[Rfam]
RNA sequence: GCGAAUCUUUUUGCGGUCUGGGCUUGCUGUUCAUAUUAUGUAGUUGGGAAGCCCUUACCCCAAAAAGCAUUUG
Number, nucleotide and partner (000 for none) at each position: 001g000002c000003g000004a000005a000006u000007c067008u066009u065010u064011u063012u062013g061014c000015g059016g058017u057018c000019u000020g054021g053022g052023c051024u000025u049026g000027c047028u046029g000030u000031u000032c000033a000034u000035a000036u000037u000038a000039u000040g000041u000042a000043g000044u000045u000046g028047g027048g000049a025050a000051g023052c022053c021054c020055u000056u000057a017058c016059c015060c000061c013062a012063a011064a010065a009066a008067g007068c000069a000070u000071u000072u000073g000
Notes:
The family of this 73-nucleotide RNA sequence from Bagarius yarrelli is "mir-129 microRNA precursor family". The match comes from Rfam's covariance-model search (88 bits).